A member of the RNA family "rmf RNA" from Stutzerimonas stutzeri, 126 nucleotides long. Rfam classes the family as a cis-regulatory element. The base pairs follow the family's consensus structure, which is taken from published work.
[Rfam]
RNA sequence: UGGGUUAGAACUCACCUCAGGCCGUCAUCGCAAGGAUGUCGGCGAGGCGCGCCACGCCGGCAGCGCGCCUCAAUCGGCAGUCUAUCUGCCCGGUCUCGCCAUGAGGCCACAGGAACACCAGUCAAC
Numbered sequence: 001u002g003g004g005u006u007a008g009a010a011c012u013c014a015c016c017u018c019a020g021g022c023c024g025u026c027a028u029c030g031c032a033a034g035g036a037u038g039u040c041g042g043c044g045a046g047g048c049g050c051g052c053c054a055c056g057c058c059g060g061c062a063g064c065g066c067g068c069c070u071c072a073a074u075c076g077g078c079a080g081u082c083u084a085u086c087u088g089c090c091c092g093g094u095c096u097c098g099c100c101a102u103g104a105g106g107c108c109a110c111a112g113g114a115a116c117a118c119c120a121g122u123c124a125a126c
Stems, first nucleotide, its partner, number of pairs: 021043004026038004046069007076090005092108006
Dot-bracket structure: ....................((((.((((.....)))).))))..(((((((..........)))))))......(((((.....))))).((((((.....))))))..................